[Rfam]
RNA sequence: AAGCAACACUCUGUGGCAGAUGAUGAAAACUGUCUGACACAAUUUGAGCUUUCUAUAGCAAGAAAGUCUAAUGUGUUUUGGUGUUCUCUCCCAUGAGAGAAGCUGUUACAUAGACUUAAACAAU
Numbered sequence: 001a002a003g004c005a006a007c008a009c010u011c012u013g014u015g016g017c018a019g020a021u022g023a024u025g026a027a028a029a030c031u032g033u034c035u036g037a038c039a040c041a042a043u044u045u046g047a048g049c050u051u052u053c054u055a056u057a058g059c060a061a062g063a064a065a066g067u068c069u070a071a072u073g074u075g076u077u078u079u080g081g082u083g084u085u086c087u088c089u090c091c092c093a094u095g096a097g098a099g100a101a102g103c104u105g106u107u108a109c110a111u112a113g114a115c116u117u118a119a120a121c122a123a124u
Base pairs, nucleotide, nucleotide: 009048010047011046012041013040014039015038017036018035019034020033021032022031064117065116066115067114068113069112070111074110075109076108079105080104081103082102087098088097089096090095

Small nucleolar RNA SNORA28: a 124-nucleotide RNA sequence from Jaculus jaculus. About the family: ACA28 is a member of the H/ACA class of snoRNA that guide the sites of modification of uridines to pseudouridines. NCBI's taxonomy places the organism under Eukaryota, Eumetazoa, Dipnotetrapodomorpha, Dipodoidea, Jaculus. The base pairs follow the family's consensus structure, which was predicted with RNAfold. On this family, see Huttenhofer et al., EMBO J 2001: "RNomics: an experimental approach that identifies 201 candidates for novel, small, non-messenger RNAs in mouse".